[Rfam]
RNA: glmS glucosamine-6-phosphate activated ribozyme aptamer
Organism: Chloroflexus aurantiacus
RNA sequence: AUCUGCUUUGAAGCGCAUGGACUUCGCGAGGAGCGAAGUUGACGAGGAGGGAGGUUCCCGGCGCGAGCCGGAGCUAACGGGUCUGAACGACCCGGAACAUCGAGAGAUCAGCGGAAGCCUCCCCGGUGCAGGGCACCACCGAUAACAGACAAACCAAUACCUGCCGGUGACGGUGAGGGCAACGUUGUCUGUAGUGACCCA
Numbered sequence: 001a002u003c004u005g006c007u008u009u010g011a012a013g014c015g016c017a018u019g020g021a022c023u024u025c026g027c028g029a030g031g032a033g034c035g036a037a038g039u040u041g042a043c044g045a046g047g048a049g050g051g052a053g054g055u056u057c058c059c060g061g062c063g064c065g066a067g068c069c070g071g072a073g074c075u076a077a078c079g080g081g082u083c084u085g086a087a088c089g090a091c092c093c094g095g096a097a098c099a100u101c102g103a104g105a106g107a108u109c110a111g112c113g114g115a116a117g118c119c120u121c122c123c124c125g126g127u128g129c130a131g132g133g134c135a136c137c138a139c140c141g142a143u144a145a146c147a148g149a150c151a152a153a154c155c156a157a158u159a160c161c162u163g164c165c166g167g168u169g170a171c172g173g174u175g176a177g178g179g180c181a182a183c184g185u186u187g188u189c190u191g192u193a194g195u196g197a198c199c200c201a
Base pairs, nucleotide, nucleotide: 020040021039022038023037024036025035026034027033049123050122051121052120053119058111060109124141125140126139127138128137146191147190148189149188150187151186152185160177162175163174164173165172166171
Dot-bracket structure: ...................((((((((.....))))))))........(((((....(.(................................................).).......)))))(((((........)))))....(((((((.......(.(((((....))))).).......)))))))..........